Shown here is a 206-nucleotide RNA from Oryza rufipogon, a member of the family "MIR812 microRNA precursor family".

RNA sequence: AAUAAGUGUAGUUUUGCACGGUUCAUAUACAACGUUUCAUCGUUCGUCUUAUUUUAAAAUUUUUUAUAUGAUUAAUAUUUUUAUUGUUACUAGAUGAUAAAACAUGAAUAGUACUUUAUCUGUGACUAAUUUUUCUAUUUUUUUAAAAAAAAUCAAAUAAAAACGGACGGUCAAACGUUGUAUGGAUUUUCACGGCCGUACUUAUU
Numbered sequence: 001a002a003u004a005a006g007u008g009u010a011g012u013u014u015u016g017c018a019c020g021g022u023u024c025a026u027a028u029a030c031a032a033c034g035u036u037u038c039a040u041c042g043u044u045c046g047u048c049u050u051a052u053u054u055u056a057a058a059a060u061u062u063u064u065u066a067u068a069u070g071a072u073u074a075a076u077a078u079u080u081u082u083a084u085u086g087u088u089a090c091u092a093g094a095u096g097a098u099a100a101a102a103c104a105u106g107a108a109u110a111g112u113a114c115u116u117u118a119u120c121u122g123u124g125a126c127u128a129a130u131u132u133u134u135c136u137a138u139u140u141u142u143u144u145a146a147a148a149a150a151a152a153u154c155a156a157a158u159a160a161a162a163a164c165g166g167a168c169g170g171u172c173a174a175a176c177g178u179u180g181u182a183u184g185g186a187u188u189u190u191c192a193c194g195g196c197c198g199u200a201c202u203u204a205u206u
Base pairs, nucleotide, nucleotide: 028182029181030180031179032178033177035175036174037173039171040170041169042168043167044166045165046164047163049160050159051158052157